Shown here is a 64-nucleotide RNA sequence from Richelia sinica, a member of the family "Nitrogen stress-induced RNA 1".
Nucleotides: 064
Stems, first nucleotide, its partner, number of pairs: 002013003027056011
Number, partner (000 for none) and nucleotide at each position: 001000u002013g003012g004011u005000a006000g007000a008000u009000g010000c011004a012003c013002c014000u015000u016000g017000a018000u019000c020000u021000u022000c023000a024000a025000c026000u027056c028055c029054c030053c031052u032051g033050g034049u035048u036047g037046g038000c039000u040000u041000a042000a043000a044000c045000a046037c047036u048035g049034a050033c051032c052031g053030g054029g055028g056027g057000u058000u059000u060000u061000u062000u063000u064000a
A search with the family's covariance model found it, with a score of 57 bits.